[Rfam]
RNA sequence: GGGUCCGGGCGAGACAGUGAGACGCCGGGCGAUCAUGGUCGCCGCAGCAGCCCGGCGAGGAGUCAGUGGCGAAACCGGCGCCCCCAGGA
Numbered sequence: 001g002g003g004u005c006c007g008g009g010c011g012a013g014a015c016a017g018u019g020a021g022a023c024g025c026c027g028g029g030c031g032a033u034c035a036u037g038g039u040c041g042c043c044g045c046a047g048c049a050g051c052c053c054g055g056c057g058a059g060g061a062g063u064c065a066g067u068g069g070c071g072a073a074a075c076c077g078g079c080g081c082c083c084c085c086a087g088g089a
Stems, first nucleotide, its partner, number of pairs: 004086001007083005013064003023057007037076002039072005

c-di-GMP-II-GAG riboswitch aptamer: an 89-nucleotide RNA from Planosporangium flavigriseum. The family's consensus secondary structure is taken from published work. Rfam links the family to the GO terms regulation of gene expression and cyclic-di-GMP binding. A search with the family's covariance model found it, with a score of 50 bits. The literature on the family includes a 2017 paper in Proc Natl Acad Sci U S A by Weinberg et al., "Bioinformatic analysis of riboswitch structures uncovers variant classes with altered ligand specificity". Taxonomically the source falls in Planosporangium (Bacteria, Bacillati, Actinomycetota, Actinomycetes).